[Rfam]
RNA: msiK RNA
RNA sequence: CCGUGAGACCUUCAUCCAACGGAUCGUCGGGCACGUACCUGCCCGGAGAAGGAGUAAACA
Numbered sequence: 001c002c003g004u005g006a007g008a009c010c011u012u013c014a015u016c017c018a019a020c021g022g023a024u025c026g027u028c029g030g031g032c033a034c035g036u037a038c039c040u041g042c043c044c045g046g047a048g049a050a051g052g053a054g055u056a057a058a059c060a
Stems, first nucleotide, its partner, number of pairs: 010051004015047002028045006